[Rfam]
RNA sequence: GGCUGGUCCGAAGGUAGUGAGUUAUAUCGAUCGUUCAGUUACAGGUCUAACUCCUUAUUCUACUCUUUCCUCCCUUCUCACUACUGCAUUUGACUAAUCUUUA
Numbered sequence: 001g002g003c004u005g006g007u008c009c010g011a012a013g014g015u016a017g018u019g020a021g022u023u024a025u026a027u028c029g030a031u032c033g034u035u036c037a038g039u040u041a042c043a044g045g046u047c048u049a050a051c052u053c054c055u056u057a058u059u060c061u062a063c064u065c066u067u068u069c070c071u072c073c074c075u076u077c078u079c080a081c082u083a084c085u086g087c088a089u090u091u092g093a094c095u096a097a098u099c100u101u102u103a
Stems, first nucleotide, its partner, number of pairs: 001099002004096005010091002014087002016082006033065001037061002

The record is a 103-nucleotide RNA sequence from Pan troglodytes, which matches "Y RNA" in Rfam. By type it is a non-coding RNA gene.